[Rfam]
RNA sequence: CCGCGAUGAUGGCAUUUCUUAGGACACCUUUGGAUUAACCGUGAAAACAGCUAUCACCUGAGCGGC
Dot-bracket structure: ((((.........................................................)))).